RNA sequence: CUUACAGAGUUUAUUGGCAUUCUGUCCACCUCCUCCUCCUACAUCGAACGGGGAAAAAAGGACAAACGAUGGAGAAAGAGCCCCGUUGUUUUUAAAGGGGAAAAAGAGAAAUUCUCCCAUGUUUUCGCUUGUUUUGAAGGAGGUGGGCAUACUGCCAAGUGAGCUCUGUUGG
Dot-bracket structure: ..........(..((((((...(((((((((((.........................................................................................................)))))))))))...))))))...)..........
Numbered sequence: 001c002u003u004a005c006a007g008a009g010u011u012u013a014u015u016g017g018c019a020u021u022c023u024g025u026c027c028a029c030c031u032c033c034u035c036c037u038c039c040u041a042c043a044u045c046g047a048a049c050g051g052g053g054a055a056a057a058a059a060g061g062a063c064a065a066a067c068g069a070u071g072g073a074g075a076a077a078g079a080g081c082c083c084c085g086u087u088g089u090u091u092u093u094a095a096a097g098g099g100g101a102a103a104a105a106g107a108g109a110a111a112u113u114c115u116c117c118c119a120u121g122u123u124u125u126c127g128c129u130u131g132u133u134u135u136g137a138a139g140g141a142g143g144u145g146g147g148c149a150u151a152c153u154g155c156c157a158a159g160u161g162a163g164c165u166c167u168g169u170u171g172g
Stems, first nucleotide, its partner, number of pairs: 011162001014158006023149011
Overview: MIR394 microRNA precursor family: a 172-nucleotide RNA sequence from Eucalyptus grandis. A search with the family's covariance model found it, with a score of 80 bits. Taxonomically the source falls in Eucalyptus (Eukaryota, Embryophyta, Mesangiospermae, malvids). For this family Rfam cites "Computational identification of plant microRNAs and their targets, including a stress-induced miRNA" (Jones-Rhoades and Bartel, Mol Cell, 2004). The family's consensus secondary structure was predicted with WAR.